RNA sequence: CUUCUUUGCAUCCUCGCGACUAAUGACAACCUUAACCCACCUGUGCGGAUAAAGCCUCUCAUUAGCCGCGCGAACCUCUGCAACGAAGAUCAUACUUAGCAACAAUACAUGAGUUUACUCGCAAUUGCUGCCGUCUGGUCGAAAAAAGGGGCCAUAAAGGCCCCCUUUU
Numbered sequence: 001c002u003u004c005u006u007u008g009c010a011u012c013c014u015c016g017c018g019a020c021u022a023a024u025g026a027c028a029a030c031c032u033u034a035a036c037c038c039a040c041c042u043g044u045g046c047g048g049a050u051a052a053a054g055c056c057u058c059u060c061a062u063u064a065g066c067c068g069c070g071c072g073a074a075c076c077u078c079u080g081c082a083a084c085g086a087a088g089a090u091c092a093u094a095c096u097u098a099g100c101a102a103c104a105a106u107a108c109a110u111g112a113g114u115u116u117a118c119u120c121g122c123a124a125u126u127g128c129u130g131c132c133g134u135c136u137g138g139u140c141g142a143a144a145a146a147a148g149g150g151g152c153c154a155u156a157a158a159g160g161c162c163c164c165c166u167u168u169u
Stems, first nucleotide, its partner, number of pairs: 001088004008081003015072004020065007095121001148164006

Shown here is a 169-nucleotide RNA from Cronobacter sakazakii, a member of the family "SraG RNA". Pairs were carried over by alignment from the consensus structure, which was predicted with PFOLD. For this family Rfam cites "Novel small RNA-encoding genes in the intergenic regions of Escherichia coli" (Argaman et al., Curr Biol, 2001). About the family: This RNA was discovered in E. coli during a large scale screen. It scores 136 bits against the family's covariance model.